A member of the RNA family "Guanidine-II riboswitch aptamer (mini-ykkC)" from Roseibium hamelinense, 51 nucleotides long. Pairs were carried over by alignment from the consensus structure, which is taken from published work. Lineage of the source: Bacteria > Pseudomonadota > Hyphomicrobiales > Stappiaceae > Roseibium. It scores 43 bits against the family's covariance model.

RNA sequence: CGCGCAGGACGGCCUGCGCGCUUCUCAUCAAAUCGAUGCGGGACGGCCCGC
Numbered sequence: 001c002g003c004g005c006a007g008g009a010c011g012g013c014c015u016g017c018g019c020g021c022u023u024c025u026c027a028u029c030a031a032a033u034c035g036a037u038g039c040g041g042g043a044c045g046g047c048c049c050g051c
Stems, first nucleotide, its partner, number of pairs: 001020008038051005